[Rfam]
RNA sequence: AAAAAACUUGUAAAGGGGCAGUCCCCUAGCCCCGCUCAAAAGGGGGAUG
Numbered sequence: 001a002a003a004a005a006a007c008u009u010g011u012a013a014a015g016g017g018g019c020a021g022u023c024c025c026c027u028a029g030c031c032c033c034g035c036u037c038a039a040a041a042g043g044g045g046g047a048u049g
Stems, first nucleotide, its partner, number of pairs: 015033005021048007
Overview
The record is a 49-nucleotide RNA from Betaretrovirus murmamtum, which matches "Gag/pro ribosomal frameshift site" in Rfam. The base pairs follow the family's consensus structure, which is taken from published work. It is annotated as a frameshift element. The sequence is in the family's curated seed alignment.